RNA sequence: GCGAGACACGCUGCCCAAUCAGCGAGAACGACCGAUAAACUGACCUCGGAUUCGCGUCGGGCGCAGCUCCCGUGCGUCUCCGCCCAUGCUUAGCCAGCAGCCGCUGCAACCCCAGGGAG
Number, nucleotide and partner (000 for none) at each position: 001g000002c000003g000004a000005g000006a000007c000008a000009c000010g000011c000012u000013g000014c000015c000016c000017a000018a000019u000020c000021a000022g000023c000024g000025a000026g000027a000028a000029c000030g000031a000032c000033c000034g000035a000036u000037a000038a000039a000040c000041u000042g000043a000044c000045c000046u000047c000048g081049g080050a079051u000052u000053c076054g000055c000056g075057u000058c072059g071060g070061g069062c000063g000064c000065a000066g000067c000068u000069c061070c060071c059072g058073u000074g000075c056076g053077u000078c000079u050080c049081c048082g000083c000084c000085c000086a000087u000088g000089c000090u000091u000092a000093g000094c000095c106096a105097g104098c103099a000100g000101c000102c000103g098104c097105u096106g095107c000108a000109a000110c000111c000112c000113c000114a000115g000116g000117g000118a000119g000
RNA: Streptomyces-metK RNA
Organism: Streptomyces zagrosensis